This 53-nucleotide RNA from Tetracentron sinense belongs to the Rfam family "Plastid-atpF group II-D1 intron". The family has 49 seed sequences and 1,372 matches in Rfam 15.1. Plastid atpF is a non-coding RNA (ncRNA) recognised in plastids. It has been reported in the intron group II-D1 region of ATP synthase (atpF) genes. Its family is annotated with Group II intron splicing in the Gene Ontology.
RNA sequence: GAAAAUUUUUUCGAUAUAGGAAACUCAUGUCAAUAAAUUGAUUUGAACCGUUU
Numbered sequence: 001g002a003a004a005a006u007u008u009u010u011u012c013g014a015u016a017u018a019g020g021a022a023a024c025u026c027a028u029g030u031c032a033a034u035a036a037a038u039u040g041a042u043u044u045g046a047a048c049c050g051u052u053u
Base pairs, nucleotide, nucleotide: 011033013031014030015029016028017027